A member of the RNA family "NiCo (Nickel/Cobalt) riboswitch aptamer", 86 nucleotides long. Pairs were carried over by alignment from the consensus structure, which is taken from published work.

RNA sequence: UAACUUUGAACUGAGCAGGCAAUGCAGCGCAUGAGGCCGGGCCCGAGAGGCAGCAGAUUGAAACAACAAACAUCUGCGGGACAGUA
Numbered sequence: 001u002a003a004c005u006u007u008g009a010a011c012u013g014a015g016c017a018g019g020c021a022a023u024g025c026a027g028c029g030c031a032u033g034a035g036g037c038c039g040g041g042c043c044c045g046a047g048a049g050g051c052a053g054c055a056g057a058u059u060g061a062a063a064c065a066a067c068a069a070a071c072a073u074c075u076g077c078g079g080g081a082c083a084g085u086a
Base pairs, nucleotide, nucleotide: 010085011084012083013082016080018038019037020036022032023031024030025029041051042050043049053077054076055075056074057073058072